[Rfam]
RNA sequence: UUAAUUCGAAUUUGUAUGUAGUUGGAAAGUUUACCUACGUUUGCCGCUAGGGGCGCUGUUUCAACUGCAUACAAAUUUGAGUUA
Numbered sequence: 001u002u003a004a005u006u007c008g009a010a011u012u013u014g015u016a017u018g019u020a021g022u023u024g025g026a027a028a029g030u031u032u033a034c035c036u037a038c039g040u041u042u043g044c045c046g047c048u049a050g051g052g053g054c055g056c057u058g059u060u061u062c063a064a065c066u067g068c069a070u071a072c073a074a075a076u077u078u079g080a081g082u083u084a
Stems, first nucleotide, its partner, number of pairs: 008078009018068001020066008029057001034052003039047002

This 84-nucleotide RNA sequence from Bombyx mori belongs to the Rfam family "mir-2807 microRNA precursor family". Lineage of the source: Eukaryota > Ecdysozoa > Endopterygota > Ditrysia > Bombyx. Gene Ontology terms of the family: miRNA-mediated post-transcriptional gene silencing and RISC complex. The family's consensus secondary structure was predicted with RNAalifold.